The record is a 50-nucleotide sequence from Lythrum salicaria, which matches "Plastid-ccsA-ndhD-2 3UTR RNA" in Rfam. Taxonomically the source falls in Lythrum (Eukaryota, Mesangiospermae, Pentapetalae, Lythraceae). Rfam describes the family as follows. Plastid ccsA-ndhD-2 is a non-coding RNA (ncRNA) recognised in plastids. It was found in the three prime untranslated region (3UTR) of ccsA and ndhD genes, its 3UTR location suggests a role in transcript maturation.

Nucleotides: 050
Stems, first nucleotide, its partner, number of pairs: 005048017
Number, partner (000 for none) and nucleotide at each position: 001000u002000u003000u004000c005048g006047a007046g008045a009044a010043c011042c012041a013040u014039u015038u016037g017036a018035a019034u020033c021032a022000a023000g024000u025000a026000g027000u028000g029000u030000a031000g032021u033020g034019a035018u036017u037016c038015a039014a040013a041012u042011g043010g044009u045008u046007c047006u048005c049000a050000c